Shown here is a 76-nucleotide sequence from Pelobacter propionicus, a member of the family "int-alpA RNA". From the family's description: Acidobacteria (1 example), Planctomycetes (1 example), Proteobacteria.
[Rfam]
RNA sequence: UCGCUGGAUAGGUUACGGCUGAUCCCCGUGGCCGACAAGCCGGUUCCCGGCCGGCUUCCAGCGAUUUUCACCGGGG
Numbered sequence: 001u002c003g004c005u006g007g008a009u010a011g012g013u014u015a016c017g018g019c020u021g022a023u024c025c026c027c028g029u030g031g032c033c034g035a036c037a038a039g040c041c042g043g044u045u046c047c048c049g050g051c052c053g054g055c056u057u058c059c060a061g062c063g064a065u066u067u068u069c070a071c072c073g074g075g076g
Stems, first nucleotide, its partner, number of pairs: 001064008011033008039055005046076003050072001

Annotation:
The family's RNA type in Rfam is small RNA.